RNA sequence: UCCCUGGUGGUCCAGUGGUUAGGACUCGGCACUUUCAUUGCUGAGGGCCUGGGUUCAAUCCCUGGUCAGGGAA
Numbered sequence: 001u002c003c004c005u006g007g008u009g010g011u012c013c014a015g016u017g018g019u020u021a022g023g024a025c026u027c028g029g030c031a032c033u034u035u036c037a038u039u040g041c042u043g044a045g046g047g048c049c050u051g052g053g054u055u056c057a058a059u060c061c062c063u064g065g066u067c068a069g070g071g072a073a
Base pairs, nucleotide, nucleotide: 001072002071003070004069005068006067007066010025011024012023013022027043028042029041030040031039049065050064051063052062053061

tRNA: a 73-nucleotide RNA sequence from Eschrichtius robustus.
It is annotated as a transfer RNA.
It scores 54 bits against the family's covariance model.
Pairs were carried over by alignment from the consensus structure, which is taken from published work.
From the family's description: Transfer RNA (tRNA) molecules are approximately 80 nucleotides in length.